A member of the RNA family "Small nucleolar RNA SNORD113/SNORD114 family", 72 nucleotides long. About the family: The imprinted human domain at 14q32 contains two clusters of tandemly repeated small nucleolar RNAs named 14q(I) and 14q(II) snoRNAs. These two clusters are named SNORD113 and SNORD114 respectively in the HGNC approved gene symbol nomenclature. The snoRNAs found in both clusters are clearly related and are represented here by a single family. The family's consensus secondary structure is taken from published work. Rfam links the family to the GO terms RNA processing and nucleolus.
RNA sequence: UGGAUCAAUGAUGACCACUGGUGGCGUAUGAGUCAUAUGUGAUGAAUACGUGUCUGGAACUCUGAGGUCCAC
Numbered sequence: 001u002g003g004a005u006c007a008a009u010g011a012u013g014a015c016c017a018c019u020g021g022u023g024g025c026g027u028a029u030g031a032g033u034c035a036u037a038u039g040u041g042a043u044g045a046a047u048a049c050g051u052g053u054c055u056g057g058a059a060c061u062c063u064g065a066g067g068u069c070c071a072c
Stems, first nucleotide, its partner, number of pairs: 002070005